[Rfam]
RNA sequence: UAUCACCAAGGAUUGUCUUUCUCGCAACAUUUUUCCUGUGAGAAGAAGAAGAAGGGAAUCAAACUUGAACAACCUCGUUCAGGUGCGAAUCAAAUUAUAAAAGGAAGUG
Numbered sequence: 001u002a003u004c005a006c007c008a009a010g011g012a013u014u015g016u017c018u019u020u021c022u023c024g025c026a027a028c029a030u031u032u033u034u035c036c037u038g039u040g041a042g043a044a045g046a047a048g049a050a051g052a053a054g055g056g057a058a059u060c061a062a063a064c065u066u067g068a069a070c071a072a073c074c075u076c077g078u079u080c081a082g083g084u085g086c087g088a089a090u091c092a093a094a095u096u097a098u099a100a101a102a103g104g105a106a107g108u109g
Stems, first nucleotide, its partner, number of pairs: 020043007064083007
Background:
The family of this 109-nucleotide RNA from Vibrio scophthalmi is "gltS RNA".